This 75-nucleotide RNA from Pan troglodytes belongs to the Rfam family "mir-922 microRNA precursor family". For this family Rfam cites "Genome-wide comparative analysis of microRNAs in three non-human primates" (Brameier, BMC Res Notes, 2010). The source organism's lineage runs through Eukaryota, Sarcopterygii, Euarchontoglires, Primates and Pan. The base pairs follow the family's consensus structure, which was predicted with RNAalifold. It is one of the family's seed sequences.

[Rfam]
RNA sequence: AUGGCGUUUUCCCUCUCCCUGUCCUGGACUGGGGUCAGACUGUGCCCCGAGGAGAAGCAGCAGAGAAUAGGACUA
Numbered sequence: 001a002u003g004g005c006g007u008u009u010u011c012c013c014u015c016u017c018c019c020u021g022u023c024c025u026g027g028a029c030u031g032g033g034g035u036c037a038g039a040c041u042g043u044g045c046c047c048c049g050a051g052g053a054g055a056a057g058c059a060g061c062a063g064a065g066a067a068u069a070g071g072a073c074u075a
Base pairs, nucleotide, nucleotide: 007075010072011071012070014066015065016064017063019060020059021058022057023052024051025050030049031048032047033046034045036044037043